[Rfam]
RNA sequence: UAGCCUGAAAUGAUGUUACGAGUUCAUGUCUCUUCUCUGAAGAUGUGUCGUGGGGACAGCUAGAUGUGUUUCUGAUCAGGCUU
Numbered sequence: 001u002a003g004c005c006u007g008a009a010a011u012g013a014u015g016u017u018a019c020g021a022g023u024u025c026a027u028g029u030c031u032c033u034u035c036u037c038u039g040a041a042g043a044u045g046u047g048u049c050g051u052g053g054g055g056a057c058a059g060c061u062a063g064a065u066g067u068g069u070u071u072c073u074g075a076u077c078a079g080g081c082u083u
Stems, first nucleotide, its partner, number of pairs: 002082004

Small nucleolar RNA SNORD111: an 83-nucleotide RNA sequence from Apaloderma vittatum. A search with the family's covariance model found it, with a score of 53 bits. NCBI's taxonomy places the organism under Eukaryota, Metazoa, Neoaves, Telluraves, Apaloderma. Rfam classes the family as a C/D-box small nucleolar RNA. Pairs were carried over by alignment from the consensus structure, which was predicted with RNAalifold. Rfam 15.1 lists 894 matches to the family in 541 species.